[Rfam]
RNA sequence: UUGUGUGUGAGGAGUAAGAACGAAAGGUAAAGCUCUUGGGGUCGAAACACGGCCAGACUCCCAAGAGCUUUUCUCU
Numbered sequence: 001u002u003g004u005g006u007g008u009g010a011g012g013a014g015u016a017a018g019a020a021c022g023a024a025a026g027g028u029a030a031a032g033c034u035c036u037u038g039g040g041g042u043c044g045a046a047a048c049a050c051g052g053c054c055a056g057a058c059u060c061c062c063a064a065g066a067g068c069u070u071u072u073c074u075c076u
Stems, first nucleotide, its partner, number of pairs: 029071005036064005041058003
RNA: Cyano-1 RNA
Organism: Pleurocapsa sp. PCC 7327